Rfam assigns this 80-nucleotide RNA from Arachis hypogaea to the family "Small nucleolar RNA snoR53Y". The family has 7 seed sequences and 513 matches in Rfam 15.1. The organism belongs to Arachis, within Eukaryota. The match comes from Rfam's covariance-model search (49 bits). For this family Rfam cites "Multiple snoRNA gene clusters from Arabidopsis" (Brown et al., RNA, 2001). The family's RNA type in Rfam is C/D-box small nucleolar RNA. Gene Ontology terms of the family: RNA processing and nucleolus.
RNA sequence: GUUCCCAACGAUGCCACUAUUCUUUACCAUGCUAAUGAUAUAUAACAUUUGAUUAUUCCUAUCAUUAUACUGAGGGAACU
Numbered sequence: 001g002u003u004c005c006c007a008a009c010g011a012u013g014c015c016a017c018u019a020u021u022c023u024u025u026a027c028c029a030u031g032c033u034a035a036u037g038a039u040a041u042a043u044a045a046c047a048u049u050u051g052a053u054u055a056u057u058c059c060u061a062u063c064a065u066u067a068u069a070c071u072g073a074g075g076g077a078a079c080u
Base pairs, nucleotide, nucleotide: 001079002078003077004076005075